[Rfam]
RNA: Archaeal large subunit ribosomal RNA, nucleotides 1403 to 1804
RNA sequence: AGUAGUAGCAGCAAAGUAGGGUAAGAAUCCCUACCGCCGGAGGGGCACGGGUUCCUCAUCAAUGUUCGUCAGCUGAGGGUCAGCCGGUCCUAAGCUCUUCCUUAACACGAGGAGAGCGAAGGGGAAACGGGUUAAUAUUCCCGUGCCACCCGAGUACCUGCCGUAAGGCUAGGCUUGAACUCCGACGCUUUGGGAUACGCCGAGUAGGGCUUCGCCCUAUUUAACCGGUAAAGUCCGGGGAGAGCCGUAACGGCGAGAACCGGAUGAAGCUGGGAAUAUCCUGUCAAGUUAUAGGUUCGGCGGAUUCUUGGAGCCCGUGAAAAGGAGAUCAAGAAUUGGAAUCUCGGGUGUCCGUACCUAGAACCAACACAGGUGUCCCUAGGUGAGUAGCCUAAGGCGUGU
Numbered sequence: 001a002g003u004a005g006u007a008g009c010a011g012c013a014a015a016g017u018a019g020g021g022u023a024a025g026a027a028u029c030c031c032u033a034c035c036g037c038c039g040g041a042g043g044g045g046c047a048c049g050g051g052u053u054c055c056u057c058a059u060c061a062a063u064g065u066u067c068g069u070c071a072g073c074u075g076a077g078g079g080u081c082a083g084c085c086g087g088u089c090c091u092a093a094g095c096u097c098u099u100c101c102u103u104a105a106c107a108c109g110a111g112g113a114g115a116g117c118g119a120a121g122g123g124g125a126a127a128c129g130g131g132u133u134a135a136u137a138u139u140c141c142c143g144u145g146c147c148a149c150c151c152g153a154g155u156a157c158c159u160g161c162c163g164u165a166a167g168g169c170u171a172g173g174c175u176u177g178a179a180c181u182c183c184g185a186c187g188c189u190u191u192g193g194g195a196u197a198c199g200c201c202g203a204g205u206a207g208g209g210c211u212u213c214g215c216c217c218u219a220u221u222u223a224a225c226c227g228g229u230a231a232a233g234u235c236c237g238g239g240g241a242g243a244g245c246c247g248u249a250a251c252g253g254c255g256a257g258a259a260c261c262g263g264a265u266g267a268a269g270c271u272g273g274g275a276a277u278a279u280c281c282u283g284u285c286a287a288g289u290u291a292u293a294g295g296u297u298c299g300g301c302g303g304a305u306u307c308u309u310g311g312a313g314c315c316c317g318u319g320a321a322a323a324g325g326a327g328a329u330c331a332a333g334a335a336u337u338g339g340a341a342u343c344u345c346g347g348g349u350g351u352c353c354g355u356a357c358c359u360a361g362a363a364c365c366a367a368c369a370c371a372g373g374u375g376u377c378c379c380u381a382g383g384u385g386a387g388u389a390g391c392c393u394a395a396g397g398c399g400u401g402u
Stems, first nucleotide, its partner, number of pairs: 016034006035399004043378004049358002054078005063071002085354003089123002094117006101109001127144005147350008181326003187314009198302005203221006225273004234264005244254003364373002380394004